The family of this 67-nucleotide sequence from Noviherbaspirillum autotrophicum is "Betaproteobacteria toxic small RNA". The literature on the family includes a 2012 paper in Genome Res by Kimelman et al., "A vast collection of microbial genes that are toxic to bacteria". About the family: Overexpression in amino aid rich medium attenuates growth, suggesting role in repressing amino acid intake and metabolism. Taxonomically the source falls in Noviherbaspirillum (Bacteria, Pseudomonadota, Betaproteobacteria, Oxalobacteraceae).
RNA sequence: UGUCUCCUCCAUCCGCCUCCUGGAUUGGACUUUGCCCGCGAGCCCUCCGGUUCGCGGGCAUUUUUUU
Numbered sequence: 001u002g003u004c005u006c007c008u009c010c011a012u013c014c015g016c017c018u019c020c021u022g023g024a025u026u027g028g029a030c031u032u033u034g035c036c037c038g039c040g041a042g043c044c045c046u047c048c049g050g051u052u053c054g055c056g057g058g059c060a061u062u063u064u065u066u067u
Base pairs, nucleotide, nucleotide: 008029009028010027011026013023014022033060034059035058036057037056038055039054040053041052042051043050044049